[Rfam]
RNA sequence: CUCACGGGUGACGACUGGCGCAGGUGGACCACCACCGGGGAGUCACAUGGGACACGCAUCGCCCGCCUGGGUGCACCCG
Numbered sequence: 001c002u003c004a005c006g007g008g009u010g011a012c013g014a015c016u017g018g019c020g021c022a023g024g025u026g027g028a029c030c031a032c033c034a035c036c037g038g039g040g041a042g043u044c045a046c047a048u049g050g051g052a053c054a055c056g057c058a059u060c061g062c063c064c065g066c067c068u069g070g071g072u073g074c075a076c077c078c079g
Base pairs, nucleotide, nucleotide: 003051005049006048008046009045010044011043012042015039016038017067018066019065020064024035025034026033027032056074057073058072059071060070
The record is a 79-nucleotide RNA sequence from Janibacter sp. HTCC2649, which matches "ZMP/ZTP riboswitch aptamer (pfl RNA motif)" in Rfam. NCBI's taxonomy places the organism under Bacteria, Bacillati, Micrococcales, Intrasporangiaceae, Janibacter. It is one of the family's seed sequences. The family's consensus secondary structure is taken from published work.